[Rfam]
RNA sequence: GAGGCAGAUCGGGCAAUCGCGGUGCCUGCGGCAUCGAGGAAGGUCCGGACUCCACAGAGCGGGGUAGCGGCUAACGGCCGUCCACCCAUGCAUUGCGUAUCAAGCGUACUGCAAGGGUGAGGAAUAGGGCCACAGAGACGAGUCUGCGGCGCGGGCACACUUGGUGUGCACUGACACGGCCAUCUCCGUGUUGCGUGGCUGGGCAACCAGGCACGGCGCAGCAGGGUGAAACGCGGCAACCUCUACCCGGAGCAACAUCAAAUAGGCAUACGCCUGGCUUCGUGCCAAAAGAGCGGCUCGCUCGAGUAUGCGGGUAGAUGGCUAGAGCGCGGCAGCAAUGCCGGGCCCAGAGGAAUGAUUGCCCGCCAGGUUCGCCUGGUGUACAGAAUCCGGCCUACAGAUCUGCCUCACUC
Numbered sequence: 001g002a003g004g005c006a007g008a009u010c011g012g013g014c015a016a017u018c019g020c021g022g023u024g025c026c027u028g029c030g031g032c033a034u035c036g037a038g039g040a041a042g043g044u045c046c047g048g049a050c051u052c053c054a055c056a057g058a059g060c061g062g063g064g065u066a067g068c069g070g071c072u073a074a075c076g077g078c079c080g081u082c083c084a085c086c087c088a089u090g091c092a093u094u095g096c097g098u099a100u101c102a103a104g105c106g107u108a109c110u111g112c113a114a115g116g117g118u119g120a121g122g123a124a125u126a127g128g129g130c131c132a133c134a135g136a137g138a139c140g141a142g143u144c145u146g147c148g149g150c151g152c153g154g155g156c157a158c159a160c161u162u163g164g165u166g167u168g169c170a171c172u173g174a175c176a177c178g179g180c181c182a183u184c185u186c187c188g189u190g191u192u193g194c195g196u197g198g199c200u201g202g203g204c205a206a207c208c209a210g211g212c213a214c215g216g217c218g219c220a221g222c223a224g225g226g227u228g229a230a231a232c233g234c235g236g237c238a239a240c241c242u243c244u245a246c247c248c249g250g251a252g253c254a255a256c257a258u259c260a261a262a263u264a265g266g267c268a269u270a271c272g273c274c275u276g277g278c279u280u281c282g283u284g285c286c287a288a289a290a291g292a293g294c295g296g297c298u299c300g301c302u303c304g305a306g307u308a309u310g311c312g313g314g315u316a317g318a319u320g321g322c323u324a325g326a327g328c329g330c331g332g333c334a335g336c337a338a339u340g341c342c343g344g345g346c347c348c349a350g351a352g353g354a355a356u357g358a359u360u361g362c363c364c365g366c367c368a369g370g371u372u373c374g375c376c377u378g379g380u381g382u383a384c385a386g387a388a389u390c391c392g393g394c395c396u397a398c399a400g401a402u403c404u405g406c407c408u409c410a411c412u413c
Stems, first nucleotide, its partner, number of pairs: 001409010011398001012363007020036007041396003045393005050252004057299004062248005067081005082121001083119004122243002127241002129237003144225002146222002149219004154214001256320004266311006291303004327346002330343005
Bacterial RNase P class A: a 413-nucleotide RNA from Pollutimonas nitritireducens. About the family: Ribonuclease P (RNase P) is a ubiquitous endoribonuclease, found in archaea, bacteria and eukarya as well as chloroplasts and mitochondria. A search with the family's covariance model found it, with a score of 213 bits. The family's RNA type in Rfam is ribozyme. Its family is annotated with ribonuclease P activity, dimeric ribonuclease P complex and tRNA processing in the Gene Ontology. The source organism's lineage runs through Bacteria, Pseudomonadati, Betaproteobacteria, Alcaligenaceae and Pollutimonas.